ASpks TB sRNA: a 75-nucleotide RNA from Actinosynnema mirum. Taxonomically the source falls in Actinosynnema mirum (Bacteria, Actinomycetota, Actinomycetes, Actinosynnema). The base pairs follow the family's consensus structure, which is taken from published work. It is annotated as an antisense RNA.
RNA sequence: CUUCACCGACCCCAGCCACAGCGGCCGGUCCUGCGGCCUGCCCCGGCCGUAGGUGUUGAGCAGCGCCCGCGCCUC
Number, nucleotide and partner (000 for none) at each position: 001c000002u000003u000004c000005a000006c000007c000008g000009a000010c000011c000012c000013c000014a000015g025016c024017c023018a000019c000020a000021g000022c000023g017024g016025c015026c000027g000028g000029u000030c000031c000032u071033g070034c069035g000036g000037c000038c000039u065040g064041c000042c000043c060044c000045g000046g000047c000048c055049g054050u000051a000052g000053g000054u049055g048056u000057u000058g000059a000060g043061c000062a000063g000064c040065g039066c000067c000068c000069g034070c033071g032072c000073c000074u000075c000